Notes
The family of this 88-nucleotide RNA from Nordella sp. HKS 07 is "Glycine riboswitch aptamer". Pairs were carried over by alignment from the consensus structure. The match comes from Rfam's covariance-model search (72 bits). This family represents the bacterial glycine riboswitch.
RNA sequence: AGGACACACGCGGGAGAGGCCGGUUAAAUCCGGCGCCGAAGGAGCAACCGCCCCGGAAACUCUCAGGCAAAAGGACCGCAUGCGUUCG
Numbered sequence: 001a002g003g004a005c006a007c008a009c010g011c012g013g014g015a016g017a018g019g020c021c022g023g024u025u026a027a028a029u030c031c032g033g034c035g036c037c038g039a040a041g042g043a044g045c046a047a048c049c050g051c052c053c054c055g056g057a058a059a060c061u062c063u064c065a066g067g068c069a070a071a072a073g074g075a076c077c078g079c080a081u082g083c084g085u086u087c088g
Base pairs, nucleotide, nucleotide: 007082008081010079011078012077013076020033021032022031023030035068036067037066038064039063042062043061044060048056049055